[Rfam]
RNA sequence: UCUGGGGUGAUCCAGAAUCUGAAGGAAGUCCGAGGCAAAUCUCCGCCCUGAGGAACACGAACUUCAUAGAAGGCUAGGUGUAUUUGGGAGAAACUGCAUAACAAGUUAAAGCCCUUACUGCCGAAGGAUACACGAAGUAAAUGGAGUGGGGAUAUGGAGAGGAAGAAUGCGUGC
Numbered sequence: 001u002c003u004g005g006g007g008u009g010a011u012c013c014a015g016a017a018u019c020u021g022a023a024g025g026a027a028g029u030c031c032g033a034g035g036c037a038a039a040u041c042u043c044c045g046c047c048c049u050g051a052g053g054a055a056c057a058c059g060a061a062c063u064u065c066a067u068a069g070a071a072g073g074c075u076a077g078g079u080g081u082a083u084u085u086g087g088g089a090g091a092a093a094c095u096g097c098a099u100a101a102c103a104a105g106u107u108a109a110a111g112c113c114c115u116u117a118c119u120g121c122c123g124a125a126g127g128a129u130a131c132a133c134g135a136a137g138u139a140a141a142u143g144g145a146g147u148g149g150g151g152a153u154a155u156g157g158a159g160a161g162g163a164a165g166a167a168u169g170c171g172u173g174c
Base pairs, nucleotide, nucleotide: 001016002015003014004013005012006011028174029173031171032170036165040160041159042158043157044156045155046151047150048149049148050147062146063145064144065143066142067141073138074137075136078133079132080131081130082129083128086114087113088112092107093106094105095104
This 174-nucleotide sequence from Virgibacillus oceani belongs to the Rfam family "Group II catalytic intron D1-D4-3". Lineage of the source: Bacteria > Bacillati > Bacillota > Bacilli > Virgibacillus. The pairing is the family consensus, mapped onto this sequence.